A member of the RNA family "SAM riboswitch aptamer (S box leader)" from Clostridium sp. CAG:226, 98 nucleotides long. The family's consensus secondary structure is taken from published work.
RNA sequence: GCCUUAUCAAGAGUGGUUGAGGGACGGGCCCUGUGAAACCCGGCAACCUGCGUGCGCGCAAGGUGCCAAUUCCCGCGGCAUUAGCCGAAAGAUGAGCG
Numbered sequence: 001g002c003c004u005u006a007u008c009a010a011g012a013g014u015g016g017u018u019g020a021g022g023g024a025c026g027g028g029c030c031c032u033g034u035g036a037a038a039c040c041c042g043g044c045a046a047c048c049u050g051c052g053u054g055c056g057c058g059c060a061a062g063g064u065g066c067c068a069a070u071u072c073c074c075g076c077g078g079c080a081u082u083a084g085c086c087g088a089a090a091g092a093u094g095a096g097c098g
Stems, first nucleotide, its partner, number of pairs: 003096006013041001015040003021031003025075004042067004047063002049060004071090001076087004
Description
It scores 82 bits against the family's covariance model.